[Rfam]
RNA sequence: ACAAAGGCUCUUUUAAGAGCCACCCACUUGAUCUGACAGAGCGAUU
Number, nucleotide and partner (000 for none) at each position: 001a000002c000003a000004a000005a000006g021007g020008c019009u018010c017011u016012u000013u000014u000015a000016a011017g010018a009019g008020c007021c006022a000023c000024c000025c000026a000027c000028u000029u000030g000031a000032u000033c000034u000035g000036a000037c000038a000039g000040a000041g000042c000043g000044a000045u000046u000

Notes
Histone 3' UTR stem-loop: a 46-nucleotide RNA sequence from Carassius auratus. The source organism's lineage runs through Eukaryota, Teleostomi, Actinopterygii, Actinopteri and Carassius.